[Rfam]
isrJ Hfq binding RNA: a 70-nucleotide RNA sequence from Zingiber officinale. The family's RNA type in Rfam is small RNA.
RNA sequence: ACUAAUGCCUCUAUUUUUUUUAUAAUAUAUUAAAACAAACAAAUUCGAGCCCCACCCAAAGUGGGGCUCU
Numbered sequence: 001a002c003u004a005a006u007g008c009c010u011c012u013a014u015u016u017u018u019u020u021u022a023u024a025a026u027a028u029a030u031u032a033a034a035a036c037a038a039a040c041a042a043a044u045u046c047g048a049g050c051c052c053c054a055c056c057c058a059a060a061g062u063g064g065g066g067c068u069c070u
Base pairs, nucleotide, nucleotide: 016035017034018033019032047069048068049067050066051065052064053063054062055061